[Rfam]
RNA sequence: UGUUCAUGCCCUCCUUGGGCGUUUCCUCCCUAGACUUCCACCGCGUUGUGCGAGCAGCGCGGUUUUUUUUGGGCUCG
Numbered sequence: 001u002g003u004u005c006a007u008g009c010c011c012u013c014c015u016u017g018g019g020c021g022u023u024u025c026c027u028c029c030c031u032a033g034a035c036u037u038c039c040a041c042c043g044c045g046u047u048g049u050g051c052g053a054g055c056a057g058c059g060c061g062g063u064u065u066u067u068u069u070u071g072g073g074c075u076c077g
Base pairs, nucleotide, nucleotide: 008020009019010018011017040063041062042061043060044059045058046057047056048055
Dot-bracket structure: .......((((.....))))...................(((((((((......)))))))))..............